[Rfam]
RNA sequence: AUAUCUGAAUACGUUGUACCGUAGACAGCAGGUGCGUUUUAUCGCUUAAUUUCCUGCCGAGGUGUUUGAGAACAAUACGAUCAUGUUAAUGUGAUUCAUUUGUUAUAAAAGCCUCCAUGUCUGCAUGGGGGCUUUACUUAUCUUGAA
Numbered sequence: 001a002u003a004u005c006u007g008a009a010u011a012c013g014u015u016g017u018a019c020c021g022u023a024g025a026c027a028g029c030a031g032g033u034g035c036g037u038u039u040u041a042u043c044g045c046u047u048a049a050u051u052u053c054c055u056g057c058c059g060a061g062g063u064g065u066u067u068g069a070g071a072a073c074a075a076u077a078c079g080a081u082c083a084u085g086u087u088a089a090u091g092u093g094a095u096u097c098a099u100u101u102g103u104u105a106u107a108a109a110a111g112c113c114u115c116c117a118u119g120u121c122u123g124c125a126u127g128g129g130g131g132c133u134u135u136a137c138u139u140a141u142c143u144u145g146a147a
Stems, first nucleotide, its partner, number of pairs: 028057005034045003111132009
Dot-bracket structure: ...........................(((((.(((......))).......))))).....................................................(((((((((....)))))))))...............
Background: The family of this 147-nucleotide RNA sequence from Virgibacillus oceani is "Ribosomal protein L10 leader". The match comes from Rfam's covariance-model search (84 bits). The family's consensus secondary structure was predicted with CMfinder. Its family is annotated with regulation of gene expression in the Gene Ontology.